Bacterial large subunit ribosomal RNA: a 228-nucleotide part of an RNA from Corynebacterium aquatimens. Lineage of the source: Bacteria > Bacillati > Mycobacteriales > Corynebacteriaceae > Corynebacterium. It scores 2614 bits against the family's covariance model.
Nucleotides: 228
Base pairs, nucleotide, nucleotide: 005085006084007083009082010081011080012079013078014077015076016075017074018073021042022041023040024039027036028035029034046053047052056066057065058064088226089225091223095216096215097214098213099212100211104192105191106190107189108188109187110186111185112184113183114182115180117149118148119147120146124141125140126139127138128137129136153177154176155175157174158173159172160171161170194204195203196202
Number, partner (000 for none) and nucleotide at each position: 001000g002000a003000g004000u005085u006084a007083g008000c009082g010081g011080c012079a013078u014077g015076u016075c017074g018073c019000g020000a021042g022041g023040u024039u025000a026000a027036c028035c029034c030000g031000u032000g033000u034029g035028g036027g037000g038000u039024a040023g041022c042021c043000g044000u045000a046053g047052g048000g049000a050000a051000a052047c053046c054000g055000a056066g057065u058064c059000c060000a061000u062000g063000a064058g065057g066056c067000g068000u069000g070000u071000u072000a073018g074017u075016g076015g077014c078013g079012u080011g081010u082009u083007c084006u085005a086000g087000a088226c089225c090000c091223g092000a093000a094000g095216c096215g097214g098213g099212g100211u101000g102000a103000u104192c105191u106190a107189c108188c109187c110186a111185u112184g113183g114182c115180c116000a117149g118148u119147g120146u121000g122000a123000a124141g125140c126139a127138g128137c129136u130000g131000u132000a133000a134000g135000a136129g137128g138127u139126u140125g141124u142000g143000g144000a145000g146120g147119c148118g149117c150000g151000a152000a153177c154176c155175c156000a157174c158173g159172u160171a161170g162000g163000u164000u165000g166000a167000a168000a169000a170161c171160u172159g173158c174157g175155g176154g177153g178000a179000u180115g181000a182114g183113u184112u185111g186110u187109g188108g189107g190106u191105a192104g193000g194204g195203g196202u197000g198000a199000a200000a201000g202196g203195c204194c205000a206000a207000u208000c209000a210000a211100a212099c213098u214097c215096c216095g217000u218000g219000a220000u221000a222000g223091c224000u225089g226088g227000u228000u